[Rfam]
RNA sequence: UCUAGUCCCCGGAUUCUGACUCCCAGCCGUUCACACGCCCUGACACACUUCCCCGGUGCCAGGUCGGAAUGGAUGGGGAUCAGGACCCGGGGCCUCCCGGGA
Numbered sequence: 001u002c003u004a005g006u007c008c009c010c011g012g013a014u015u016c017u018g019a020c021u022c023c024c025a026g027c028c029g030u031u032c033a034c035a036c037g038c039c040c041u042g043a044c045a046c047a048c049u050u051c052c053c054c055g056g057u058g059c060c061a062g063g064u065c066g067g068a069a070u071g072g073a074u075g076g077g078g079a080u081c082a083g084g085a086c087c088c089g090g091g092g093c094c095u096c097c098c099g100g101g102a
Base pairs, nucleotide, nucleotide: 010089011088012087014085015084016083018081019080021078022077023076024075025074027072028071029070030069031068032067036066037065039063040062041061042060044058045057046056